[Rfam]
Description: The record is a 563-nucleotide part of an RNA from Oenothera phytoplasma 86-7, which matches "Bacterial small subunit ribosomal RNA" in Rfam. It is one of the family's seed sequences. Pairs were carried over by alignment from the consensus structure, which is taken from published work. Clan: SSU clan. The organism belongs to Candidatus Phytoplasma, within Bacteria.
Nucleotides: 563
Base pairs, nucleotide, nucleotide: 008024009023010022011021012020026553027552028551029550031549032548033547034546035545036544038404039403040402041401042400043399044397045396046362051360052359053358055357056356057355060095061094062093065092066091068089069088070087071086072085073084074083075082076081102315103314104313111240112239113238114237115236116235117234118233121232122231126228127227128226129225130224131223132222134168136166137165143158144157145156146155147154148153174197175196176195177194178193179192180191181190182189183188202220204218241287242286243285248278249277250276253275254274255273256272257271258270259269260268290312291311292310293309294305295304296303297302317338318337319336320335321334340351341350342349343348368394370393371392372391376389377388378387379386380385407437408436409435410434417428418427419426420425442490443489444488445487446486447485451480457474458473459472497542498541499540500539501538508537509536510535511534512533518525519524
Number, partner (000 for none) and nucleotide at each position: 001000a002000u003000a004000c005000g006000a007000a008024g009023a010022g011021u012020u013000u014000g015000a016000u017000c018000c019000u020012g021011g022010c023009u024008c025000a026553g027552g028551a029550u030000u031549a032548a033547c034546g035545c036544u037000g038404g039403c040402g041401g042400c043399g044397u045396g046362c047000c048000u049000a050000a051360u052359a053358c054000a055357u056356g057355c058000a059000a060095g061094u062093c063000g064000a065092a066091c067000g068089g069088a070087a071086g072085u073084u074083u075082a076081a077000g078000c079000a080000a081076u082075u083074a084073a085072a086071c087070u088069u089068u090000a091066g092065u093062g094061g095060c096000g097000a098000a099000c100000g101000g102315g103314u104313g105000a106000g107000u108000a109000a110000c111240g112239c113238g114237u115236a116235a117234g118233c119000a120000a121232u122231c123000u124000g125000c126228c127227c128226c129225u130224a131223a132222g133000a134168c135000g136166a137165g138000g139000a140000u141000a142000a143158c144157a145156g146155u147154u148153g149000g150000a151000a152000a153148c154147g155146a156145c157144u158143g159000c160000u161000a162000a163000g164000a165137c166136u167000g168134g169000a170000u171000a172000g173000g174197a175196g176195a177194c178193a179192a180191g181190a182189a183188g184000g185000c186000a187000u188183c189182u190181u191180c192179u193178u194177g195176u196175u197174u198000u199000u200000a201000a202220a203000a204218g205000a206000c207000c208000u209000a210000g211000c212000a213000a214000u215000a216000g217000g218204u219000a220202u221000g222132c223131u224130u225129a226128g227127g228126g229000a230000g231122g232121a233118g234117c235116u236115u237114g238113c239112g240111u241287c242286a243285c244000a245000u246000u247000a248278g249277u250276u251000a252000g253275u254274u255273g256272g257271u258270g259269g260268g261000g262000u263000a264000a265000a266000g267000g268260c269259c270258u271257a272256c273255c274254a275253a276250g277249a278248c279000u280000a281000u282000g283000a284000u285243g286242u287241g288000u289000a290312g291311c292310c293309g294305g295304g296303c297302u298000g299000a300000g301000a302297g303296g304295u305294u306000g307000a308000a309293c310292g311291g312290c313104c314103a315102c316000a317338u318337u319336g320335g321334g322000a323000c324000u325000g326000a327000g328000a329000c330000a331000c332000g333000g334321c335320c336319c337318a338317a339000a340351c341350u342349c343348c344000u345000a346000c347000g348343g349342g350341a351340g352000g353000c354000a355057g356056c357055a358053g359052u360051a361000g362046g363000g364000a365000a366000u367000u368394u369000u370393c371392g372391g373000c374000a375000a376389u377388g378387g379386a380385g381000g382000a383000a384000a385380c386379u387378c388377u389376g390000a391372c392371c393370g394368a395000g396045c397044a398000a399043c400042g401041c402040c403039g404038c405000g406000u407437g408436a409435a410434c411000g412000a413000u414000g415000a416000a417428g418427u419426a420425u421000u422000u423000c424000g425420g426419u427418a428417c429000g430000u431000a432000a433000a434410g435409u436408u437407c438000u439000u440000u441000u442490a443489u444488u445487a446486g447485g448000g449000a450000a451480g452000g453000a454000a455000u456000a457474a458473a459472u460000g461000a462000u463000g464000g465000a466000a467000a468000a469000a470000u471000c472459a473458u474457u475000g476000c477000u478000g479000a480451c481000g482000g483000u484000a485447c486446c487445u488444a489443a490442u491000g492000a493000a494000u495000a496000a497542g498541c499540c500539c501538c502000g503000g504000c505000u506000a507000a508537c509536u510535a511534u512533g513000u514000g515000c516000c517000a518525g519524c520000a521000g522000c523000c524519g525518c526000g527000g528000u529000a530000a531000u532000a533512c534511a535510u536509a537508g538501g539500g540499g541498g542497c543000a544036a545035g546034c547033g548032u549031u550029a551028u552027c553026c554000g555000g556000a557000a558000u559000u560000a561000u562000u563000g